The family of this 99-nucleotide RNA from Halopseudomonas yangmingensis is "Glycine riboswitch aptamer". It scores 58 bits against the family's covariance model.
RNA sequence: UCAACGCCGUCUGGAGAGAGGCUGCACAGCAGCCCACCGAAGGGGCAAGCAGGGCUUAUGCCCCGUAAACUCUCAGGUAUCAAGGACAGGGGGAGAGGC
Numbered sequence: 001u002c003a004a005c006g007c008c009g010u011c012u013g014g015a016g017a018g019a020g021g022c023u024g025c026a027c028a029g030c031a032g033c034c035c036a037c038c039g040a041a042g043g044g045g046c047a048a049g050c051a052g053g054g055c056u057u058a059u060g061c062c063c064c065g066u067a068a069a070c071u072c073u074c075a076g077g078u079a080u081c082a083a084g085g086a087c088a089g090g091g092g093g094a095g096a097g098g099c
Stems, first nucleotide, its partner, number of pairs: 007093002010090004020034004036078003039074002043072003049066002
The base pairs follow the family's consensus structure.